[Rfam]
RNA sequence: UACAAAUGAUGUUUUCUCACGAUGGUCUUCCUAGCCUUUUUGGUUUUGACGAUAACGCCUUAUGGCAUUGCUGAUGUAGUCCC
Numbered sequence: 001u002a003c004a005a006a007u008g009a010u011g012u013u014u015u016c017u018c019a020c021g022a023u024g025g026u027c028u029u030c031c032u033a034g035c036c037u038u039u040u041u042g043g044u045u046u047u048g049a050c051g052a053u054a055a056c057g058c059c060u061u062a063u064g065g066c067a068u069u070g071c072u073g074a075u076g077u078a079g080u081c082c083c
Stems, first nucleotide, its partner, number of pairs: 001078004
Background: The family of this 83-nucleotide RNA sequence from Gadus morhua is "Small nucleolar RNA SNORD35". NCBI's taxonomy places the organism under Eukaryota, Neopterygii, Acanthomorphata, Zeiogadaria, Gadus. Rfam's curators write: U35 is a C/D box snoRNA located in intron 6 of ribosomal protein L13A and intron 3 of ribosomal protein S11 in humans and at homologous positions in mouse and chicken ribosomal protein genes. U35 guides the methylation of 2'-O-ribose sites in 28S rRNA. It is annotated as a C/D-box small nucleolar RNA. The family is grouped with related families in Rfam's "SNORD35 clan". The family has 8 seed sequences and 1,842 matches in Rfam 15.1.